This 462-nucleotide part of an RNA from Labeo rohita belongs to the Rfam family "Eukaryotic large subunit ribosomal RNA". It scores 2741 bits against the family's covariance model. The family's consensus secondary structure is taken from published work. The source organism's lineage runs through Eukaryota, Eumetazoa, Bilateria, Gnathostomata and Labeo.

[Rfam]
RNA sequence: CGGGUGGGGCCCGCACGGUCCGCCCGGAGGAUUCAACCCGGCGGCUGCGGCCGGCCCGGUCGGGCGCGCGGAUCCCCUCGGUCGGGACCGCCGCCCGGCCGGCGACGCGGCCUCCGCCGGGCGCACUUCUUCCGCGGCGGUGCUCCGCGACCGGCUCCGGUUCGGCCGGGAAGGGUCAGGGGGCGAAGGUGGCUCGCGGCCUCCGGGCCGCGCGCUUUACAGCGCCCCCCCGCCCCGACUCAGCCGCUUACCCCCGGGGCCGCGGGCAGUGUCCUCGCGCCCUCUCUCCCCGCGGGGAGGGACGGGGCCCCUCGCCCCCGGCGCCGGCGCGCGUCGGGGCGGACUGUCCUCAGUCCGCCUCGGCCGCGCUGCGCCGCCAGGGCGGGGAUCAGGCCCUCGUACAACGGGCGCUCGAGGUCCGCGGAGAGGUCGGCCACCCACCCGACCCGUCUUGAAACACGG
Numbered sequence: 001c002g003g004g005u006g007g008g009g010c011c012c013g014c015a016c017g018g019u020c021c022g023c024c025c026g027g028a029g030g031a032u033u034c035a036a037c038c039c040g041g042c043g044g045c046u047g048c049g050g051c052c053g054g055c056c057c058g059g060u061c062g063g064g065c066g067c068g069c070g071g072a073u074c075c076c077c078u079c080g081g082u083c084g085g086g087a088c089c090g091c092c093g094c095c096c097g098g099c100c101g102g103c104g105a106c107g108c109g110g111c112c113u114c115c116g117c118c119g120g121g122c123g124c125a126c127u128u129c130u131u132c133c134g135c136g137g138c139g140g141u142g143c144u145c146c147g148c149g150a151c152c153g154g155c156u157c158c159g160g161u162u163c164g165g166c167c168g169g170g171a172a173g174g175g176u177c178a179g180g181g182g183g184c185g186a187a188g189g190u191g192g193c194u195c196g197c198g199g200c201c202u203c204c205g206g207g208c209c210g211c212g213c214g215c216u217u218u219a220c221a222g223c224g225c226c227c228c229c230c231c232g233c234c235c236c237g238a239c240u241c242a243g244c245c246g247c248u249u250a251c252c253c254c255c256g257g258g259g260c261c262g263c264g265g266g267c268a269g270u271g272u273c274c275u276c277g278c279g280c281c282c283u284c285u286c287u288c289c290c291c292g293c294g295g296g297g298a299g300g301g302a303c304g305g306g307g308c309c310c311c312u313c314g315c316c317c318c319c320g321g322c323g324c325c326g327g328c329g330c331g332c333g334u335c336g337g338g339g340c341g342g343a344c345u346g347u348c349c350u351c352a353g354u355c356c357g358c359c360u361c362g363g364c365c366g367c368g369c370u371g372c373g374c375c376g377c378c379a380g381g382g383c384g385g386g387g388a389u390c391a392g393g394c395c396c397u398c399g400u401a402c403a404a405c406g407g408g409c410g411c412u413c414g415a416g417g418u419c420c421g422c423g424g425a426g427a428g429g430u431c432g433g434c435c436a437c438c439c440a441c442c443c444g445a446c447c448c449g450u451c452u453u454g455a456a457a458c459a460c461g462g
Stems, first nucleotide, its partner, number of pairs: 001444008009435001011433002447462004